[Rfam]
RNA sequence: UCGCCUAAGCUAGUAUUACCUUAGGCGACUUCUGUAACGUGUCACA
Numbered sequence: 001u002c003g004c005c006u007a008a009g010c011u012a013g014u015a016u017u018a019c020c021u022u023a024g025g026c027g028a029c030u031u032c033u034g035u036a037a038c039g040u041g042u043c044a045c046a
Stems, first nucleotide, its partner, number of pairs: 001028009
RNA: ssNA-helicase RNA